[Rfam]
RNA sequence: GUCCCACUGGUCAAGUGGUCCUAAACAUUUCACAAUUUUGGUAAAGAACUGUUGAACUGUUAAGAACCACUUCGCCAGAA
Numbered sequence: 001g002u003c004c005c006a007c008u009g010g011u012c013a014a015g016u017g018g019u020c021c022u023a024a025a026c027a028u029u030u031c032a033c034a035a036u037u038u039u040g041g042u043a044a045a046g047a048a049c050u051g052u053u054g055a056a057c058u059g060u061u062a063a064g065a066a067c068c069a070c071u072u073c074g075c076c077a078g079a080a
Stems, first nucleotide, its partner, number of pairs: 014071006021064002024061004029056004